Description
This 139-nucleotide RNA from Enterobacterales bacterium CwR94 belongs to the Rfam family "CpoB/ybgF ICR thermometer". It is annotated as an RNA thermoregulator. From the family's description: Imprinting control region from upstream of cpoB/ybgF (tol/pal system protein). It scores 119 bits against the family's covariance model.
RNA sequence: CCAAAUCUCUAUCGUUUCUUACGGUAAAGAGAAACCAGCUGUACUGGGCCAUGACGAAGCAGCCUAUGCUAAAAACCGUCGUGCCGUACUGGUUUACUAAGAGAACCUUCUAAUGAGUAACUUCAGCCGUCAUUUACUG
Numbered sequence: 001c002c003a004a005a006u007c008u009c010u011a012u013c014g015u016u017u018c019u020u021a022c023g024g025u026a027a028a029g030a031g032a033a034a035c036c037a038g039c040u041g042u043a044c045u046g047g048g049c050c051a052u053g054a055c056g057a058a059g060c061a062g063c064c065u066a067u068g069c070u071a072a073a074a075a076c077c078g079u080c081g082u083g084c085c086g087u088a089c090u091g092g093u094u095u096a097c098u099a100a101g102a103g104a105a106c107c108u109u110c111u112a113a114u115g116a117g118u119a120a121c122u123u124c125a126g127c128c129g130u131c132a133u134u135u136a137c138u139g
Base pairs, nucleotide, nucleotide: 001047002046003045007041014035015034016033017032018031019030020029054138057135058134059133062130063129067125068124075118076117079113081111083109086106087105089103090102